This 77-nucleotide sequence from bacterium YEK0313 belongs to the Rfam family "Makes More Granules Regulator RNA (mmgR)". Rfam's curators write: SuhB later renamed mmgR (makes more granules regulator) was a putative non-coding RNA found multiple times in the Agrobacterium tumefaciens genome and related alpha-proteobacteria. Pairs were carried over by alignment from the consensus structure. Rfam links the family to the GO terms DNA-templated transcription, termination, protein binding and response to nitrogen compound.
RNA sequence: CCGGGGAGCCCUCCGUGGGCGUUUCCUCCCUGAGACUGGCCCGCGCUGGCAACGGCGCGGGCCUUUUUUUAUCGUUC
Numbered sequence: 001c002c003g004g005g006g007a008g009c010c011c012u013c014c015g016u017g018g019g020c021g022u023u024u025c026c027u028c029c030c031u032g033a034g035a036c037u038g039g040c041c042c043g044c045g046c047u048g049g050c051a052a053c054g055g056c057g058c059g060g061g062c063c064u065u066u067u068u069u070u071a072u073c074g075u076u077c
Stems, first nucleotide, its partner, number of pairs: 008020004039062009